[Rfam]
RNA sequence: AAUUGUAUUAUGGUAUCAGAGCGAACUAUUCUUUCGCCUUUUACUAAAGAAUAUCGUGUGUACGCCGCAAACAGCGGCAUACACUUACUUUCGAACUAUGUAAAUUGUGAUAAAUUU
Numbered sequence: 001a002a003u004u005g006u007a008u009u010a011u012g013g014u015a016u017c018a019g020a021g022c023g024a025a026c027u028a029u030u031c032u033u034u035c036g037c038c039u040u041u042u043a044c045u046a047a048a049g050a051a052u053a054u055c056g057u058g059u060g061u062a063c064g065c066c067g068c069a070a071a072c073a074g075c076g077g078c079a080u081a082c083a084c085u086u087a088c089u090u091u092c093g094a095a096c097u098a099u100g101u102a103a104a105u106u107g108u109g110a111u112a113a114a115u116u117u
Base pairs, nucleotide, nucleotide: 003077004076005075006074008067011064012063017058018057027053028052029051030050031049032048033047034046095117098115099114101112102111